Small nucleolar RNA SNORA65: a 129-nucleotide sequence from Ailuropoda melanoleuca. The literature on the family includes a 2001 paper in EMBO J by Huttenhofer et al., "RNomics: an experimental approach that identifies 201 candidates for novel, small, non-messenger RNAs in mouse". The source organism's lineage runs through Eukaryota, Laurasiatheria, Carnivora, Ursidae and Ailuropoda. By type it is an H/ACA-box small nucleolar RNA. The family is grouped with related families in Rfam's "SNORA65 clan". From the family's description: U65 belongs to the H/ACA class of snoRNAs which are thought to guide the sites of modification of uridines to pseudouridines.
[Rfam]
RNA sequence: CCCGCCACUGCACCCGGUCAGUUUCUGUCGGCUGGUGCAAUCCAGUGGUGAGCUGAUAGUAAACCCCAGCUUAGGAAACAGGGUUGUUCUUCAUGUGGAUGACUCUGUGCCGAAAGCAUGGGAACAGCC
Number, nucleotide and partner (000 for none) at each position: 001c000002c000003c000004g000005c048006c047007a046008c045009u044010g043011c000012a000013c000014c000015c000016g000017g036018u035019c034020a033021g032022u030023u000024u000025c000026u000027g000028u000029c000030g022031g000032c021033u020034g019035g018036u017037g000038c000039a000040a000041u000042c000043c010044a009045g008046u007047g006048g005049u000050g000051a000052g000053c000054u000055g000056a000057u000058a000059g000060u000061a000062a000063a000064c122065c121066c120067c000068a119069g117070c116071u115072u114073a000074g111075g110076a000077a000078a000079c107080a106081g105082g104083g103084u102085u000086g000087u099088u098089c097090u000091u000092c000093a000094u000095g000096u000097g089098g088099a087100u000101g000102a084103c083104u082105c081106u080107g079108u000109g000110c075111c074112g000113a000114a072115a071116g070117c069118a000119u068120g066121g065122g064123a000124a000125c000126a000127g000128c000129c000